[Rfam]
RNA sequence: CAAUGAGGUAGAGGUCGCAGCUUUUAUGAGUACAGUGAACGAGACGCAGAGACGUCAAAGACUUCACUGGAAAGGAAAAGCUGCCGAAGCUUGGGCAUUUCUCUGGAUGCUUAAGCUGGGGCUGUUGCCGAAUAGGAACAGCACUGUCACGUUUGCAUGGAGCAGACGUGGAGCGCUAUCUUCAUG
Numbered sequence: 001c002a003a004u005g006a007g008g009u010a011g012a013g014g015u016c017g018c019a020g021c022u023u024u025u026a027u028g029a030g031u032a033c034a035g036u037g038a039a040c041g042a043g044a045c046g047c048a049g050a051g052a053c054g055u056c057a058a059a060g061a062c063u064u065c066a067c068u069g070g071a072a073a074g075g076a077a078a079a080g081c082u083g084c085c086g087a088a089g090c091u092u093g094g095g096c097a098u099u100u101c102u103c104u105g106g107a108u109g110c111u112u113a114a115g116c117u118g119g120g121g122c123u124g125u126u127g128c129c130g131a132a133u134a135g136g137a138a139c140a141g142c143a144c145u146g147u148c149a150c151g152u153u154u155g156c157a158u159g160g161a162g163c164a165g166a167c168g169u170g171g172a173g174c175g176c177u178a179u180c181u182u183c184a185u186g
Stems, first nucleotide, its partner, number of pairs: 006181006017084009033069007088117012118145002121142006128135001147171007
The family of this 186-nucleotide RNA sequence from Thermaerobacillus caldiproteolyticus is "Lysine riboswitch aptamer".
A search with the family's covariance model found it, with a score of 135 bits.
The family has 47 seed sequences and 3,224 matches in Rfam 15.1.
The source organism's lineage runs through Bacteria, Bacillati, Bacilli, Caryophanales and Thermaerobacillus.
A reference for the family is Mandal et al. (2003), "Riboswitches Control Fundamental Biochemical Pathways in Bacillus subtilis and Other Bacteria", Cell.